[Rfam]
A member of the RNA family "Histone 3' UTR stem-loop" from Eudromia elegans, 46 nucleotides long.

RNA sequence: GCACAGGCCUUUUUCAAGGCCACAAAUGUCAACAGUAGCAAUUUGG
Number, nucleotide and partner (000 for none) at each position: 001g000002c000003a000004c000005a000006g021007g020008c019009c018010u017011u016012u000013u000014u000015c000016a011017a010018g009019g008020c007021c006022a000023c000024a000025a000026a000027u000028g000029u000030c000031a000032a000033c000034a000035g000036u000037a000038g000039c000040a000041a000042u000043u000044u000045g000046g000
A search with the family's covariance model found it, with a score of 34 bits. The family's consensus secondary structure is taken from published work.